[Rfam]
RNA: Bacterial RNase P class A
Organism: Chryseolinea serpens
RNA sequence: GCAACAAGCCGCCUUAUCGCCUCCGAGCUUGCUGGGGGGAGGAAAGUCCGGGCAACACAGGGUAGCGUACUUCCUAACGGGAAGGGGCUUCGGGCAACCGGGGUCACAGACAGUGCCACAGAAAACAAACUACCCGUUCCGACUUGUCGGGACAGGAAAAGGUGAAAAGGUGAGGUAAGAGCUCACCGGCCGGCUGGCGACAGACGGUGCAGGGUAAACCUUACGCGUUGAAAGGUCAAAUAGGCCAUGGUUGGAAUUGCCCGUUCCUUCGUGCGGCGCAAGCCGUAUGUAACCGUGGCGGGUAGACUGAUUGAUCAUGGUGGCGACGCCAUGACCAGAUAAAUGAUAGGGAUCCGCUUCGGCGGAAACAGAACCCGGCUUACAGGCUUGCUAUUUUU
Numbered sequence: 001g002c003a004a005c006a007a008g009c010c011g012c013c014u015u016a017u018c019g020c021c022u023c024c025g026a027g028c029u030u031g032c033u034g035g036g037g038g039g040a041g042g043a044a045a046g047u048c049c050g051g052g053c054a055a056c057a058c059a060g061g062g063u064a065g066c067g068u069a070c071u072u073c074c075u076a077a078c079g080g081g082a083a084g085g086g087g088c089u090u091c092g093g094g095c096a097a098c099c100g101g102g103g104u105c106a107c108a109g110a111c112a113g114u115g116c117c118a119c120a121g122a123a124a125a126c127a128a129a130c131u132a133c134c135c136g137u138u139c140c141g142a143c144u145u146g147u148c149g150g151g152a153c154a155g156g157a158a159a160a161g162g163u164g165a166a167a168a169g170g171u172g173a174g175g176u177a178a179g180a181g182c183u184c185a186c187c188g189g190c191c192g193g194c195u196g197g198c199g200a201c202a203g204a205c206g207g208u209g210c211a212g213g214g215u216a217a218a219c220c221u222u223a224c225g226c227g228u229u230g231a232a233a234g235g236u237c238a239a240a241u242a243g244g245c246c247a248u249g250g251u252u253g254g255a256a257u258u259g260c261c262c263g264u265u266c267c268u269u270c271g272u273g274c275g276g277c278g279c280a281a282g283c284c285g286u287a288u289g290u291a292a293c294c295g296u297g298g299c300g301g302g303u304a305g306a307c308u309g310a311u312u313g314a315u316c317a318u319g320g321u322g323g324c325g326a327c328g329c330c331a332u333g334a335c336c337a338g339a340u341a342a343a344u345g346a347u348a349g350g351g352a353u354c355c356g357c358u359u360c361g362g363c364g365g366a367a368a369c370a371g372a373a374c375c376c377g378g379c380u381u382a383c384a385g386g387c388u389u390g391c392u393a394u395u396u397u398u
Stems, first nucleotide, its partner, number of pairs: 001394001003392001005390006011383001012351007020039005026033002044381003048378005053230004061284003065226005070084005085107001086105008108221002113219002115215003130161002133156002136153007169187006188210001189208004194203003234308004244299006276290003315334008